[Rfam]
Nucleotides: 385
Base pairs, nucleotide, nucleotide: 002380004378005377006376007375008374010372011370012336013335014334015333016332017331018330020038021037022036023035024034025033043368044367045366047365048364049363050362051361052215053214054213055212064211065210066209067208068207069083070082071081072080073079084101085099086098087097088096102206103205108204109203110200111199112198125146126145127142128141129140130139131138132137154172155171156170157169158168159167175194176193177192179190180189181188182187219293220292221291222290229284230283231282232281233280234279269276270275301318302317303316304315305314306313307312
Number, partner (000 for none) and nucleotide at each position: 001000c002380c003000c004378g005377c006376a007375a008374a009000a010372c011370g012336u013335u014334c015333u016332a017331u018330c019000g020038c021037u022036g023035c024034c025033a026000g027000c028000u029000u030000g031000u032000a033025u034024g035023g036022c037021g038020g039000a040000g041000g042000a043368a044367a045366g046000u047365c048364c049363g050362g051361g052215c053214a054213a055212c056000a057000u058000a059000g060000a061000g062000c063000a064211u065210c066209c067208u068207g069083c070082u071081u072080c073079c074000u075000a076000a077000c078000g079073g080072g081071a082070a083069g084101g085099c086098g087097c088096c089000g090000g091000c092000a093000g094000c095000c096088g097087g098086c099085g100000a101084c102206a103205g104000c105000a106000a107000a108204g109203u110200g111199c112198c113000a114000c115000a116000g117000a118000g119000a120000a121000a122000a123000u124000a125146c126145c127142g128141c129140c130139c131138g132137c133000u134000u135000a136000g137132g138131u139130g140129g141128g142127u143000a144000a145126g146125g147000g148000u149000g150000a151000a152000a153000a154172c155171g156170u157169g158168a159167g160000g161000u162000a163000a164000g165000a166000g167159c168158u169157c170156a171155c172154g173000g174000c175194a176193u177192a178000a179190c180189c181188g182187g183000g184000c185000g186000a187182c188181c189180g190179g191000c192177u193176a194175u195000g196000a197000c198112g199111g200110u201000a202000a203109a204108c205103c206102u207068c208067a209066g210065g211064a212055g213054u214053u215052g216000a217000a218000a219293a220292a221291c222290c223000a224000a225000a226000u227000a228000g229284g230283u231282c232281c233280c234279g235000a236000a237000a238000g239000c240000g241000g242000a243000g244000u245000u246000g247000c248000u249000c250000g251000c252000u253000c254000c255000c256000g257000u258000a259000u260000u261000g262000g263000c264000c265000g266000c267000a268000a269276g270275g271000u272000u273000a274000a275270u276269c277000g278000u279234u280233g281232g282231g283230a284229u285000g286000g287000g288000u289000a290222g291221g292220u293219u294000g295000u296000u297000u298000a299000a300000a301318c302317c303316u304315g305314u306313u307312a308000g309000u310000g311000a312307u313306a314305a315304c316303a317302g318301g319000g320000c321000c322000a323000g324000a325000u326000a327000a328000a329000u330018g331017a332016u333015a334014g335013a336012a337000g338000u339000u340000g341000c342000c343000u344000u345000u346000u347000g348000g349000g350000g351000c352000a353000a354000u355000a356000c357000a358000g359000a360000a361051c362050c363049c364048g365047g366045c367044u368043u369000a370011c371000a372010g373000g374008u375007u376006u377005g378004c379000u380002g381000c382000u383000g384000u385000a

The family of this 385-nucleotide sequence from Mucilaginibacter oryzae is "Bacterial RNase P class A".
From the family's description: Ribonuclease P (RNase P) is a ubiquitous endoribonuclease, found in archaea, bacteria and eukarya as well as chloroplasts and mitochondria.
The family's RNA type in Rfam is ribozyme.
A search with the family's covariance model found it, with a score of 241 bits.